Rfam assigns this 104-nucleotide RNA from Bordetella pertussis to the family "traJ-II RNA". NCBI's taxonomy places the organism under Bacteria, Pseudomonadati, Pseudomonadota, Betaproteobacteria, Bordetella. Pairs were carried over by alignment from the consensus structure, which is taken from published work.

[Rfam]
RNA sequence: GGGCAAGAUGGGCGAAGUUAGCUAACCGGCAAGCCGGUUAUCUAUCUUCGCUUCCCCUUAUUCGCGCCGGUGGCACUCAACGGGGCAUCUUGCUCUGCGAGGCA
Number, nucleotide and partner (000 for none) at each position: 001g095002g094003g093004c092005a091006a090007g089008a088009u087010g000011g000012g051013c050014g049015a048016a047017g046018u000019u044020a043021g042022c000023u000024a039025a038026c037027c036028g035029g034030c000031a000032a000033g000034c029035c028036g027037g026038u025039u024040a000041u000042c021043u020044a019045u000046c017047u016048u015049c014050g013051c012052u000053u000054c085055c084056c083057c082058u000059u000060a000061u000062u000063c000064g076065c000066g074067c073068c072069g000070g000071u000072g068073g067074c066075a000076c064077u000078c000079a000080a000081c000082g057083g056084g055085g054086c000087a009088u008089c007090u006091u005092g004093c003094u002095c001096u000097g000098c000099g000100a000101g000102g000103c000104a000